[Rfam]
RNA sequence: AGCCUAACCCCGUAGCAAUGCGGGCAUGGCGAAAAAAGUCCAGUUAGACAUAAAGAACCCAUCAUGGGGUUGUCUAACUGGCCGUAUCGGGAAACCGGUACGAGGGGCUUCGGUCCCU
Numbered sequence: 001a002g003c004c005u006a007a008c009c010c011c012g013u014a015g016c017a018a019u020g021c022g023g024g025c026a027u028g029g030c031g032a033a034a035a036a037a038g039u040c041c042a043g044u045u046a047g048a049c050a051u052a053a054a055g056a057a058c059c060c061a062u063c064a065u066g067g068g069g070u071u072g073u074c075u076a077a078c079u080g081g082c083c084g085u086a087u088c089g090g091g092a093a094a095c096c097g098g099u100a101c102g103a104g105g106g107g108c109u110u111c112g113g114u115c116c117c118u
Base pairs, nucleotide, nucleotide: 002030003029004028009024010023011022012021013020014019040081041080042079043078044077045076046075047074048073049072050071057070058069059068060067083102084101085100086099087098088097089096090095103118104117105116106115107114108113